Rfam assigns this 61-nucleotide RNA from Lysionotus pauciflorus to the family "Plastid-psbA-2 3UTR RNA".
The source organism's lineage runs through Eukaryota, Pentapetalae, lamiids, Didymocarpinae and Lysionotus.
From the family's description: Plastid psbA-2 is a non-coding RNA (ncRNA) present in plastids.
A reference for the family is Richter et al. (2023), "Retrograde signaling in plants: A critical review focusing on the GUN pathway and beyond", Plant Commun.
By type it is a cis-regulatory element.
RNA sequence: AAUAUAAGGAGCAAUAACCUAUUUCUUGUUCUAGCAAGGGGGUUAUUGCUCCUUUAUUUUU
Numbered sequence: 001a002a003u004a005u006a007a008g009g010a011g012c013a014a015u016a017a018c019c020u021a022u023u024u025c026u027u028g029u030u031c032u033a034g035c036a037a038g039g040g041g042g043u044u045a046u047u048g049c050u051c052c053u054u055u056a057u058u059u060u061u
Stems, first nucleotide, its partner, number of pairs: 006054013020041001024039005